The record is a 122-nucleotide RNA sequence from Sedimenticola thiotaurini, which matches "RtT RNA" in Rfam. Pairs were carried over by alignment from the consensus structure, which is taken from published work. Rfam describes the family as follows. This family represents a bacterial cis-regulatory element known as RtT RNA. The exact function of RtT is unknown although it is thought that it may be involved in changing the cellular response in relation to amino acid starvation. Rfam links the family to the GO term cellular response to amino acid starvation. Taxonomically the source falls in Sedimenticola (Bacteria, Pseudomonadati, Gammaproteobacteria, Chromatiales). For this family Rfam cites "A novel RNA product of the tyrT operon of Escherichia coli" (Bosl and Kersten, Nucleic Acids Res, 1991).
RNA sequence: GAAAAAGGUGCUGUAUGGAGGGUGAGAAGCUCCACCGAGGUUCGGCGCGCAGCGCCACGAGGAGCAUAGCGACGAGCCCGGAGGGUGAGGCCGCAGGCCGAAUAAUCCUCCAUCCCCAGACU
Number, nucleotide and partner (000 for none) at each position: 001g000002a000003a000004a000005a000006a000007g000008g000009u000010g000011c000012u000013g000014u000015a113016u112017g111018g110019a109020g108021g107022g000023u105024g000025a000026g000027a000028a000029g000030c000031u000032c000033c087034a086035c085036c084037g000038a000039g000040g000041u082042u081043c080044g079045g000046c000047g000048c059049g058050c000051a000052g000053c000054g000055c000056c000057a000058c049059g048060a000061g000062g000063a000064g000065c000066a000067u000068a000069g000070c000071g000072a000073c000074g000075a000076g000077c000078c000079c044080g043081g042082a041083g000084g036085g035086u034087g033088a000089g000090g000091c000092c000093g000094c000095a000096g000097g000098c000099c000100g000101a000102a000103u000104a000105a023106u000107c021108c020109u019110c018111c017112a016113u015114c000115c000116c000117c000118a000119g000120a000121c000122u000